[Rfam]
RNA sequence: GCGCCACUAGUGCAUCGAAUCCUGGGAAACAGGCACGGAGAACAAAAUCCGGUAAGCUCGGGAAGCCGUCAACUUCCGCCGUAUUGAUGAAAACAACU
Numbered sequence: 001g002c003g004c005c006a007c008u009a010g011u012g013c014a015u016c017g018a019a020u021c022c023u024g025g026g027a028a029a030c031a032g033g034c035a036c037g038g039a040g041a042a043c044a045a046a047a048u049c050c051g052g053u054a055a056g057c058u059c060g061g062g063a064a065g066c067c068g069u070c071a072a073c074u075u076c077c078g079c080c081g082u083a084u085u086g087a088u089g090a091a092a093a094c095a096a097c098u
Base pairs, nucleotide, nucleotide: 011091013089014088015087016086017085018084021033022032023031024030037050038049039048056082057081061077062076063075064074065073
The family of this 98-nucleotide RNA from Luteovirus phaseoli is "Luteovirus cap-independent translation element (BTE)". About the family: This family represents the Luteovirus cap-independent translation element (BTE) as found in barley yellow dwarf virus (BYDV), bean leafroll virus and soybean dwarf virus. This family mediates translation of genomic (gRNA) and subgenomic RNA1 (sgRNA1). For this family Rfam cites "Subgenomic RNA as a riboregulator: negative regulation of RNA replication by Barley yellow dwarf virus subgenomic RNA 2" (Shen and Miller, Virology, 2004). Its family is annotated with translation initiation factor binding and translational initiation in the Gene Ontology. The organism belongs to Luteovirus phaseoli, within Viruses.